[Rfam]
A member of the RNA family "c-di-AMP riboswitch aptamer (ydaO/yuaA leader)" from Ammonifex degensii, 150 nucleotides long. Taxonomically the source falls in Ammonifex degensii (Bacteria, Clostridia, Thermoanaerobacterales, Ammonifex).

RNA sequence: AUUGCUGGAGCGCUGAAUUCUUCCUCGGCAGGCCGAGGGGGAAGCGGGGGACCCGUCUCGUGGGGUGAAUCCCGGCCUUCUACGGCCGGGUAGGGUCAAGCUUUCGACCCGAACCCGUCAGCUAACCUCGUAAGCGUGGAAAGCACCGGA
Numbered sequence: 001a002u003u004g005c006u007g008g009a010g011c012g013c014u015g016a017a018u019u020c021u022u023c024c025u026c027g028g029c030a031g032g033c034c035g036a037g038g039g040g041g042a043a044g045c046g047g048g049g050g051a052c053c054c055g056u057c058u059c060g061u062g063g064g065g066u067g068a069a070u071c072c073c074g075g076c077c078u079u080c081u082a083c084g085g086c087c088g089g090g091u092a093g094g095g096u097c098a099a100g101c102u103u104u105c106g107a108c109c110c111g112a113a114c115c116c117g118u119c120a121g122c123u124a125a126c127c128u129c130g131u132a133a134g135c136g137u138g139g140a141a142a143g144c145a146c147c148g149g150a
Stems, first nucleotide, its partner, number of pairs: 011136004018043011044131006054062002063116003071090006093110004
Dot-bracket structure: ..........((((...(((((((((((....)))))))))))((((((....((.....))(((.....((((((........))))))..((((..........))))...))).........)))))).))))..............